Overview:
Shown here is an 87-nucleotide RNA sequence from Calidifontibacillus erzurumensis, a member of the family "c-di-GMP-I riboswitch aptamer". Taxonomically the source falls in Calidifontibacillus (Bacteria, Bacillati, Bacillota, Caryophanales).
[Rfam]
RNA sequence: AAACGAUAAAGGCAAAACUGUGGAAACGCAGUGACGCAAAGCUAUAGGGACUUCUCCAAUCUUUUGGAAUGUCAGCCAGUUACCGAA
Dot-bracket structure: ...........((...((((((....))))))...))..((((...(((((....((((....))))...)))..))))))......
Description:
Pairs were carried over by alignment from the consensus structure, which is taken from published work. A search with the family's covariance model found it, with a score of 81 bits.